[Rfam]
RNA sequence: CCUUGGGACACCCCUCCCCAACGAGGGGCGAAUAUCUGAGAGGGUAUCAGAU
Numbered sequence: 001c002c003u004u005g006g007g008a009c010a011c012c013c014c015u016c017c018c019c020a021a022c023g024a025g026g027g028g029c030g031a032a033u034a035u036c037u038g039a040g041a042g043g044g045u046a047u048c049a050g051a052u
Base pairs, nucleotide, nucleotide: 011028012027013026014025015024016023032047033046034045035044036043037042
The family of this 52-nucleotide sequence is "serC leader". Its family is annotated with regulation of gene expression in the Gene Ontology. From the family's description: This family is a putative regulatory RNA structure that is found upstream of the serC-serA operon in some alpha-proteobacteria. The final stem of the structure overlaps the ribosome binding site of the serC reading frame. The pairing is the family consensus, mapped onto this sequence. Rfam classes the family as a cis-regulatory leader. The literature on the family includes a 2005 paper in Genome Biol by Corbino et al., "Evidence for a second class of S-adenosylmethionine riboswitches and other regulatory RNA motifs in alpha-proteobacteria".